[Rfam]
RNA: Small nucleolar RNA SNORA73 family
Nucleotides: 206
Base pairs, nucleotide, nucleotide: 001108003106004105005104006103007102010044011043012042014038015037016036019030020029021028022027049100051098052097058093060091061090062087064085065084066083067080135198136197139194140193141192153183154182156180157179162170163169164168
Number, partner (000 for none) and nucleotide at each position: 001108c002000c003106a004105a005104u006103g007102u008000g009000g010044a011043u012042a013000u014038c015037c016036c017000u018000g019030g020029g021028a022027g023000g024000u025000c026000g027022c028021u029020c030019u031000c032000a033000c034000u035000g036016g037015g038014g039000c040000u041000c042012u043011g044010u045000a046000g047000a048000g049100g050000g051098g052097g053000c054000a055000u056000a057000g058093g059000a060091g061090a062087g063000c064085a065084c066083a067080g068000g069000g070000c071000u072000c073000u074000g075000c076000c077000c078000c079000a080067u081000g082000a083066u084065g085064u086000a087062u088000a089000g090061u091060u092000c093058c094000u095000u096000c097052c098051c099000a100049c101000a102007a103006u104005g105004u106003u107000a108001g109000g110000g111000g112000u113000g114000a115000a116000a117000u118000u119000g120000g121000c122000c123000c124000u125000u126000g127000u128000g129000u130000c131000u132000g133000c134000a135198u136197u137000a138000a139194c140193a141192u142000a143000c144000u145000c146000c147000u148000a149000c150000a151000g152000c153183u154182u155000a156180u157179c158000a159000g160000a161000a162170u163169c164168c165000u166000g167000u168164g169163g170162a171000c172000a173000a174000u175000g176000a177000c178000u179157g180156g181000g182154g183153a184000a185000a186000c187000a188000a189000a190000c191000c192141a193140u194139g195000c196000a197136g198135a199000a200000a201000a202000c203000a204000a205000c206000u